[Rfam]
RNA: U11 spliceosomal RNA
Organism: Sipha flava
RNA sequence: AAAAAGGAUGUCCACCGCUUGCAUGGUGUUUGGGUCACUGGUUCUCGGGGUAUGGCCAUUAAUACAUAUUCGACACAUAAUUUUAGAAACCGCGGGCUGUUGGUCACCAAUACGUGCCGGCGUCUGC
Numbered sequence: 001a002a003a004a005a006g007g008a009u010g011u012c013c014a015c016c017g018c019u020u021g022c023a024u025g026g027u028g029u030u031u032g033g034g035u036c037a038c039u040g041g042u043u044c045u046c047g048g049g050g051u052a053u054g055g056c057c058a059u060u061a062a063u064a065c066a067u068a069u070u071c072g073a074c075a076c077a078u079a080a081u082u083u084u085a086g087a088a089a090c091c092g093c094g095g096g097c098u099g100u101u102g103g104u105c106a107c108c109a110a111u112a113c114g115u116g117c118c119g120g121c122g123u124c125u126g127c
Stems, first nucleotide, its partner, number of pairs: 009075004013028005029047001032044004048071007094125004099121005105116003